[Rfam]
RNA: mir-46/mir-47/mir-281 microRNA precursor family
Organism: Bombyx mori
RNA sequence: UCUGUUAAUGAAGAGAGCUAUCCGUCGACAGUAUUGCUGAUAAACACUGUCAUGGAGUUGCUCUCUUUAUGAACGGA
Numbered sequence: 001u002c003u004g005u006u007a008a009u010g011a012a013g014a015g016a017g018c019u020a021u022c023c024g025u026c027g028a029c030a031g032u033a034u035u036g037c038u039g040a041u042a043a044a045c046a047c048u049g050u051c052a053u054g055g056a057g058u059u060g061c062u063c064u065c066u067u068u069a070u071g072a073a074c075g076g077a
Stems, first nucleotide, its partner, number of pairs: 010068005016062003021056004027051003031047002